[Rfam]
A member of the RNA family "Purine riboswitch aptamer" from Paenibacillus albiflavus, 102 nucleotides long.
RNA sequence: CUACAUAUGUUUGAACAAACUCGUAUAAUUGCGGGAAUUGGCCCGUUAAGUUUCUACCUGAUCACCGGAAAUGAUCGGACUACGAGAAGAUAGAGUAGUGUA
Numbered sequence: 001c002u003a004c005a006u007a008u009g010u011u012u013g014a015a016c017a018a019a020c021u022c023g024u025a026u027a028a029u030u031g032c033g034g035g036a037a038u039u040g041g042c043c044c045g046u047u048a049a050g051u052u053u054c055u056a057c058c059u060g061a062u063c064a065c066c067g068g069a070a071a072u073g074a075u076c077g078g079a080c081u082a083c084g085a086g087a088a089g090a091u092a093g094a095g096u097a098g099u100g101u102a
Base pairs, nucleotide, nucleotide: 020086021085022084023083024082025081029048031046032045033044034043035042058078059077060076061075062074063073064072
Dot-bracket structure: ...................((((((...(.(((((......))))).).........(((((((.......)))))))..))))))................
Background:
The family's consensus secondary structure is taken from published work. Lineage of the source: Bacteria > Bacilli > Caryophanales > Paenibacillaceae > Paenibacillus.